Shown here is a 158-nucleotide sequence from Geotrypetes seraphini, a member of the family "Small nucleolar RNA SNORD97". Rfam 15.1 lists 639 matches to the family in 614 species. On this family, see Vitali et al., Nucleic Acids Res 2003: "Identification of 13 novel human modification guide RNAs". The family's consensus secondary structure was predicted with WAR. The family's RNA type in Rfam is C/D-box small nucleolar RNA. Its family is annotated with nucleolus and RNA processing in the Gene Ontology.
[Rfam]
RNA sequence: UUGCCCGAUGAUUAAGAUAAAGACGCGUUAUUAUGAGGACUAAUGCUGGAACUCUGUUUCUCUAUUUUUCAACCUUUCUUUUUCUUCUUCUUUUCCUCAUCUGUUCCUCUUUUUCAAAUGUCUGGCAUCCUGUGAGUAAAACAGAGAUAUGAGGGCAA
Numbered sequence: 001u002u003g004c005c006c007g008a009u010g011a012u013u014a015a016g017a018u019a020a021a022g023a024c025g026c027g028u029u030a031u032u033a034u035g036a037g038g039a040c041u042a043a044u045g046c047u048g049g050a051a052c053u054c055u056g057u058u059u060c061u062c063u064a065u066u067u068u069u070c071a072a073c074c075u076u077u078c079u080u081u082u083u084c085u086u087c088u089u090c091u092u093u094u095c096c097u098c099a100u101c102u103g104u105u106c107c108u109c110u111u112u113u114u115c116a117a118a119u120g121u122c123u124g125g126c127a128u129c130c131u132g133u134g135a136g137u138a139a140a141a142c143a144g145a146g147a148u149a150u151g152a153g154g155g156c157a158a
Base pairs, nucleotide, nucleotide: 001158002157003156004155005154006153036055037054038053041050
Dot-bracket structure: ((((((.............................(((..(........)..))).................................................................................................))))))